[Rfam]
RNA sequence: CCAAAGGCUCUUUUAAGAGCCACUUAAAUUGUCGCCUAAAGAGUUGU
Numbered sequence: 001c002c003a004a005a006g007g008c009u010c011u012u013u014u015a016a017g018a019g020c021c022a023c024u025u026a027a028a029u030u031g032u033c034g035c036c037u038a039a040a041g042a043g044u045u046g047u
Stems, first nucleotide, its partner, number of pairs: 006021006